Source information: Shown here is a 123-nucleotide RNA from Pongo abelii, a member of the family "Small nucleolar RNA SNORA15". On this family, see Huttenhofer et al., EMBO J 2001: "RNomics: an experimental approach that identifies 201 candidates for novel, small, non-messenger RNAs in mouse". Rfam classes the family as an H/ACA-box small nucleolar RNA. The organism belongs to Pongo, within Eukaryota. Rfam links the family to the GO terms RNA processing and nucleolus. Rfam's curators write: ACA15 is a member of the H/ACA class of snoRNA that guide the sites of modification of uridines to pseudouridines. Rfam 15.1 lists 974 matches to the family in 624 species. Pairs were carried over by alignment from the consensus structure, which was predicted with RNAfold.

RNA sequence: GCUGAUUUUGAAACUUAAAAAAAAAAAUCACCAGGUACCAUGCAAAAGCAAUCUUCCCUUUAGAAUGACUGAUGGUAUGCUAACGUUUUUCAUGGCAUAUUAUUAUUAAAGGUGAAUACAAAU
Numbered sequence: 001g002c003u004g005a006u007u008u009u010g011a012a013a014c015u016u017a018a019a020a021a022a023a024a025a026a027a028u029c030a031c032c033a034g035g036u037a038c039c040a041u042g043c044a045a046a047a048g049c050a051a052u053c054u055u056c057c058c059u060u061u062a063g064a065a066u067g068a069c070u071g072a073u074g075g076u077a078u079g080c081u082a083a084c085g086u087u088u089u090u091c092a093u094g095g096c097a098u099a100u101u102a103u104u105a106u107u108a109a110a111g112g113u114g115a116a117u118a119c120a121a122a123u
Base pairs, nucleotide, nucleotide: 001038009030010029011028054116055115056114057112058111059110060109061108062107063106070105071104072103073102074101075100076099077098078097079096080095081094082093